This 647-nucleotide sequence from Fonsecaea erecta belongs to the Rfam family "RNase MRP". The source organism's lineage runs through Eukaryota, Ascomycota, leotiomyceta, Eurotiomycetes and Fonsecaea. The literature on the family includes a 2002 paper in RNA by Li et al., "Phylogenetic analysis of the structure of RNase MRP RNA in yeasts". About the family: RNase MRP is an enzymatically active ribonucleoprotein with two distinct roles in eukaryotes. In mitochondria it plays a direct role in the initiation of mitochondrial DNA replication. In the nucleus it is involved in precursor rRNA processing, where it cleaves the internal transcribed spacer 1 between 18S and 5.8S rRNAs. Despite distinct functions, RNase MRP has been shown to be evolutionarily related to RNase P. Like eukaryotic RNase P, RNase MRP is not catalytically active without associated protein subunits. Pairs were carried over by alignment from the consensus structure, which is taken from published work.
RNA sequence: UCCGCGUUCGAAGGAUCGCAUUCAAAGCUCACGCACAGCAGAAGUCUCUCCAGAUAUCUGCAGACCAACUGCCCACCUCAAAAUGGGCGAAGCUUUGGGAGAAAGUCCCCGGACCACCCUACCUCUCUUCCUUUUUGGAGAGAGAACGUCAGGACCUGCCGAGAGGCAACCGCCAUCAAAGCAACCUUUCACUGCGGUUUUUUUUCUCGCCUCCCACUCUUCUCCGAGUCUACCCCCGCUCCUCGAACUUCGACCUCACUGUCGUCUGCAUUCUCUGCCGAACUCCCCUAUUGUCCGCGUGUCUCGAUGUGGAGGGAGCUUGGGGGAAAGAUUGUUUGUCUGGCAGAUGGAUGAAGAUAUGAGUCCGUCGCCGUGAGGGCAACUGUCUUUCCCCUUUUCUGAAGCGGAGAGGCCUUGGACUUUCGGGGUUUGUUUCACGCAGGGAAGAGAUAGUGAGGGUUCCAUGACAUUGGAAGAUCGACGGGUGUGGGAGACUUGGGGAGUUCAAAGGAGUGAUUUUUGGAGGUUGCGCAAUUCGUCAUAUGUCGAAAGUUAUGCGAUUGCUCUUCCCACCCCCAUAUCGUCGCGUUUGAGGCGGUGUUGGGCUAUGGGGGAGUAACUCGAUGGGGCUUAUUCUUGAGGCGCAG
Dot-bracket structure: .(.((((((((..((((((..(((((((.........((((..(.....................)..))))...................)))))).)...[[[.[[[[.............................................................................................................................................................................................................................................................................................................((....(((((((((........((((.......................................................((((...))))........))))...)))))))))..))........................)))))).((((((.........................................)))))).........]]]]]]]....)))).)))).)